[Rfam]
RNA: c-di-GMP-I-GGC riboswitch aptamer
RNA sequence: ACCGUCAAGGGCAAACCCGUCGAAAGUCGGGGACGCAAAGCAACCGGUCUAAAAGGGCUCACGCCCGAUGACAGCGGGGCUGCCAAAU
Numbered sequence: 001a002c003c004g005u006c007a008a009g010g011g012c013a014a015a016c017c018c019g020u021c022g023a024a025a026g027u028c029g030g031g032g033a034c035g036c037a038a039a040g041c042a043a044c045c046g047g048u049c050u051a052a053a054a055g056g057g058c059u060c061a062c063g064c065c066c067g068a069u070g071a072c073a074g075c076g077g078g079g080c081u082g083c084c085a086a087a088u
Stems, first nucleotide, its partner, number of pairs: 001088001004084001011036002016031004021026001034074001039081003044077003047072003